[Rfam]
A member of the RNA family "MIR535 microRNA precursor family" from Physcomitrium patens, 96 nucleotides long. The literature on the family includes a 2010 paper in Nucleic Acids Res by Zeng et al., "Conservation and divergence of microRNAs and their functions in Euphorbiaceous plants".
RNA sequence: GAACCUAGGUGACAACGAGAGAGAGCACGCUGGAAUGCUUUUCAUGCAAUACGCUUGGAUGUGUUCUAGCGUGCCCUCUACCGUUGUCGCCAAACA
Numbered sequence: 001g002a003a004c005c006u007a008g009g010u011g012a013c014a015a016c017g018a019g020a021g022a023g024a025g026c027a028c029g030c031u032g033g034a035a036u037g038c039u040u041u042u043c044a045u046g047c048a049a050u051a052c053g054c055u056u057g058g059a060u061g062u063g064u065u066c067u068a069g070c071g072u073g074c075c076c077u078c079u080a081c082c083g084u085u086g087u088c089g090c091c092a093a094a095c096a
Base pairs, nucleotide, nucleotide: 010089011088012087013086014085016083017082020079021078023076025074026073027072028071029070030069031068032067033066034065